[Rfam]
RNA sequence: AUUUAAUACUUACAAUAAUCCUAUAUAUACUAGAAAUAUGGUCUAGUGUCUCUACAAUUAACCUUAAAUUAAAUACUAUAGGUCUUAAUUUAUUUUUA
Numbered sequence: 001a002u003u004u005a006a007u008a009c010u011u012a013c014a015a016u017a018a019u020c021c022u023a024u025a026u027a028u029a030c031u032a033g034a035a036a037u038a039u040g041g042u043c044u045a046g047u048g049u050c051u052c053u054a055c056a057a058u059u060a061a062c063c064u065u066a067a068a069u070u071a072a073a074u075a076c077u078a079u080a081g082g083u084c085u086u087a088a089u090u091u092a093u094u095u096u097u098a
Stems, first nucleotide, its partner, number of pairs: 020082006029047006056074001058072004

Rfam assigns this 98-nucleotide RNA from Spiroplasma melliferum to the family "Purine riboswitch aptamer". The source organism's lineage runs through Bacteria, Bacillati, Mycoplasmatota, Entomoplasmatales and Spiroplasma.